[Rfam]
RNA sequence: CCUCUGGACUGUCAUACAAACCUAAGUAGCAUUAGCGAAAAAGGGAUAGGAUGAACGAGGAA
Number, nucleotide and partner (000 for none) at each position: 001c060002c059003u058004c057005u000006g000007g000008a000009c049010u048011g047012u046013c045014a000015u000016a000017c000018a000019a000020a000021c044022c043023u042024a000025a000026g000027u000028a000029g036030c035031a000032u000033u000034a000035g030036c029037g000038a000039a000040a000041a000042a023043g022044g021045g013046a012047u011048a010049g009050g000051a000052u000053g000054a000055a000056c000057g004058a003059g002060g001061a000062a000
Description: The family of this 62-nucleotide sequence is "RAGATH-18 RNA". Pairs were carried over by alignment from the consensus structure, which is taken from published work.